[Rfam]
RNA sequence: CCAAAUGUACGACCAUUCGUAGCCUACCCAAGCAUGCGUCGCUGGUAACAGCGGGGUGUGAAGCCUUGGGGACAAUGUACUCACGCGAAAGCGUUAUCGAUUUCAUGUGAAUGAUUCGAUAGACACUGCCAGCAGCAAGGUGGUCGAGAGG
Numbered sequence: 001c002c003a004a005a006u007g008u009a010c011g012a013c014c015a016u017u018c019g020u021a022g023c024c025u026a027c028c029c030a031a032g033c034a035u036g037c038g039u040c041g042c043u044g045g046u047a048a049c050a051g052c053g054g055g056g057u058g059u060g061a062a063g064c065c066u067u068g069g070g071g072a073c074a075a076u077g078u079a080c081u082c083a084c085g086c087g088a089a090a091g092c093g094u095u096a097u098c099g100a101u102u103u104c105a106u107g108u109g110a111a112u113g114a115u116u117c118g119a120u121a122g123a124c125a126c127u128g129c130c131a132g133c134a135g136c137a138a139g140g141u142g143g144u145c146g147a148g149a150g151g
Stems, first nucleotide, its partner, number of pairs: 002019001004017004028069005033060005039054006083094004095121004105112002125144006